RNA: drz-agam-1 ribozyme
RNA sequence: UGCUACCAAACCCUAUCUCCACCUCCACGUGGUGACUGCGGGGAGCUCUUCCGUGACGAGAAGCUGCAGACGGAGAAGG
Numbered sequence: 001u002g003c004u005a006c007c008a009a010a011c012c013c014u015a016u017c018u019c020c021a022c023c024u025c026c027a028c029g030u031g032g033u034g035a036c037u038g039c040g041g042g043g044a045g046c047u048c049u050u051c052c053g054u055g056a057c058g059a060g061a062a063g064c065u066g067c068a069g070a071c072g073g074a075g076a077a078g079g
Stems, first nucleotide, its partner, number of pairs: 012079003016075001018073002021033003044065004049060003